[Rfam]
RNA sequence: UACCACUGGCUAGGCCAGUGGUUCAAAAAAGCUUAAAGCUUUGAACAAAAAAAUAAACCUCCUUUGUUAUAAUUUGAAUGGGUCUGCCAACCUAAUCCAAUUAACAAAGAAGGAAGUA
Number, nucleotide and partner (000 for none) at each position: 001u000002a022003c021004c020005a019006c018007u017008g016009g015010c014011u000012a000013g000014g010015c009016c008017a007018g006019u005020g004021g003022u002023u000024c000025a000026a000027a000028a042029a041030a040031g039032c038033u037034u000035a000036a000037a033038g032039c031040u030041u029042u028043g000044a000045a000046c000047a000048a000049a000050a000051a000052a000053a000054u000055a000056a000057a000058c116059c000060u114061c113062c112063u111064u110065u106066g105067u104068u103069a000070u000071a101072a000073u099074u000075u000076g097077a096078a000079u094080g093081g092082g091083u090084c000085u000086g000087c000088c000089a000090a083091c082092c081093u080094a079095a000096u077097c076098c000099a073100a000101u071102u000103a068104a067105c066106a065107a000108a000109g000110a064111a063112g062113g061114a060115a000116g058117u000118a000

This 118-nucleotide RNA sequence from Bacillus sp. V3-13 belongs to the Rfam family "STnc490 Hfq binding RNA". Lineage of the source: Bacteria > Bacillota > Caryophanales > Bacillaceae > Bacillus. By type it is a small RNA.